[Rfam]
RNA sequence: ACAACAAGAACAACAACGUCGACACAACAGAACAAAAACAAGAUCUGGCGAUUCCAUAACAACAAGAACAACAGGAUGGAAGCGUAGCAAACCGAUCGUUUUGGAGAGGAGUUGCCUGCACUCCGACCGGCCCGAGAACCAUAAAACUGCCCCGAGGCAGCGGCCAGUACCGGUUGAGCCUGCAAGGCAUGCGGCAGCAUCAGCGUCCAAAACAAUCCGUUUGUUCUUGAGCCCCCACUUGGGGCUGCGACACCGAAGCGUGCCUUUGGCCGGUGAAAAACAAGAACAACACACCGCCGCUAUAACAAGAACACAGCAUGACCGACUUGAGGGGGAGCCUAGGCUCCCCCUUGUGCUGUCUGCUCUCCCGAACUGGCGUGCCC
Numbered sequence: 001a002c003a004a005c006a007a008g009a010a011c012a013a014c015a016a017c018g019u020c021g022a023c024a025c026a027a028c029a030g031a032a033c034a035a036a037a038a039c040a041a042g043a044u045c046u047g048g049c050g051a052u053u054c055c056a057u058a059a060c061a062a063c064a065a066g067a068a069c070a071a072c073a074g075g076a077u078g079g080a081a082g083c084g085u086a087g088c089a090a091a092c093c094g095a096u097c098g099u100u101u102u103g104g105a106g107a108g109g110a111g112u113u114g115c116c117u118g119c120a121c122u123c124c125g126a127c128c129g130g131c132c133c134g135a136g137a138a139c140c141a142u143a144a145a146a147c148u149g150c151c152c153c154g155a156g157g158c159a160g161c162g163g164c165c166a167g168u169a170c171c172g173g174u175u176g177a178g179c180c181u182g183c184a185a186g187g188c189a190u191g192c193g194g195c196a197g198c199a200u201c202a203g204c205g206u207c208c209a210a211a212a213c214a215a216u217c218c219g220u221u222u223g224u225u226c227u228u229g230a231g232c233c234c235c236c237a238c239u240u241g242g243g244g245c246u247g248c249g250a251c252a253c254c255g256a257a258g259c260g261u262g263c264c265u266u267u268g269g270c271c272g273g274u275g276a277a278a279a280a281c282a283a284g285a286a287c288a289a290c291a292c293a294c295c296g297c298c299g300c301u302a303u304a305a306c307a308a309g310a311a312c313a314c315a316g317c318a319u320g321a322c323c324g325a326c327u328u329g330a331g332g333g334g335g336a337g338c339c340u341a342g343g344c345u346c347c348c349c350c351u352u353g354u355g356c357u358g359u360c361u362g363c364u365c366u367c368c369c370g371a372a373c374u375g376g377c378g379u380g381c382c383c
Stems, first nucleotide, its partner, number of pairs: 049084002052081004099212005113205003124176007147160005230246005268364003271296004314358004331350008
RNA: Pseudomonas sRNA CrcZ